[Rfam]
RNA sequence: AACUUAUGUAUGGAGAAAGAAAUUACCAUUUCAUAAUCCCUAUAAUAUUUUGAUAUAAUUUAGGAUUCGCUAAAUGGAUACAAAA
Numbered sequence: 001a002a003c004u005u006a007u008g009u010a011u012g013g014a015g016a017a018a019g020a021a022a023u024u025a026c027c028a029u030u031u032c033a034u035a036a037u038c039c040c041u042a043u044a045a046u047a048u049u050u051u052g053a054u055a056u057a058a059u060u061u062a063g064g065a066u067u068c069g070c071u072a073a074a075u076g077g078a079u080a081c082a083a084a085a
Stems, first nucleotide, its partner, number of pairs: 026077006035067005042059002045056004
Rfam assigns this 85-nucleotide sequence from Tetrahymena elliotti to the family "Tetrahymena snoRNA TtnuHACA27". Rfam links the family to the GO terms nucleolus and RNA processing. The family's RNA type in Rfam is H/ACA-box small nucleolar RNA.